[Rfam]
RNA: Burkholderia sRNA Bp1_Cand612_SIPHT
RNA sequence: AAAAAAAAUGGGCGAAACGCCCAUCUUCUUACUCUGGUGGUCGCAUCUAGGCCGCACAUUAAACCCGUACGCCCAGCGACUUUGCGAUUAUAGCGUUUU
Numbered sequence: 001a002a003a004a005a006a007a008a009u010g011g012g013c014g015a016a017a018c019g020c021c022c023a024u025c026u027u028c029u030u031a032c033u034c035u036g037g038u039g040g041u042c043g044c045a046u047c048u049a050g051g052c053c054g055c056a057c058a059u060u061a062a063a064c065c066c067g068u069a070c071g072c073c074c075a076g077c078g079a080c081u082u083u084g085c086g087a088u089u090a091u092a093g094c095g096u097u098u099u
Stems, first nucleotide, its partner, number of pairs: 008024007038090007049082003053078003